[Rfam]
RNA: Purine riboswitch aptamer
Organism: Paenibacillus beijingensis
RNA sequence: UGCAUAACAUUUUGCCUUUUUCGUAUAUCCUUAAUAAUCGGGUUAAGGGUCUCUACACAGAAACCGUAAAUUUCUGGCUACGAAGAAUAGGCCCCUUGGG
Numbered sequence: 001u002g003c004a005u006a007a008c009a010u011u012u013u014g015c016c017u018u019u020u021u022c023g024u025a026u027a028u029c030c031u032u033a034a035u036a037a038u039c040g041g042g043u044u045a046a047g048g049g050u051c052u053c054u055a056c057a058c059a060g061a062a063a064c065c066g067u068a069a070a071u072u073u074c075u076g077g078c079u080a081c082g083a084a085g086a087a088u089a090g091g092c093c094c095c096u097u098g099g100g
Stems, first nucleotide, its partner, number of pairs: 018086008029048007058076006